Rfam assigns this 91-nucleotide RNA sequence to the family "RT-9 RNA". By type it is a small RNA.
[Rfam]
RNA sequence: GAUCGGUACGGUCAAGGCUUUACCGACAGACUUUUCAAGAAGUCAGAGGAUUCGGCUCGUUCGGGGCAAUACCCGGCAAACAUCAAAAAGG
Numbered sequence: 001g002a003u004c005g006g007u008a009c010g011g012u013c014a015a016g017g018c019u020u021u022a023c024c025g026a027c028a029g030a031c032u033u034u035u036c037a038a039g040a041a042g043u044c045a046g047a048g049g050a051u052u053c054g055g056c057u058c059g060u061u062c063g064g065g066g067c068a069a070u071a072c073c074c075g076g077c078a079a080a081c082a083u084c085a086a087a088a089a090g091g
Stems, first nucleotide, its partner, number of pairs: 003026006010019003062075004
Dot-bracket structure: ..((((((.(((....))).))))))...................................((((......))))................

Annotation: Pairs were carried over by alignment from the consensus structure, which is taken from published work.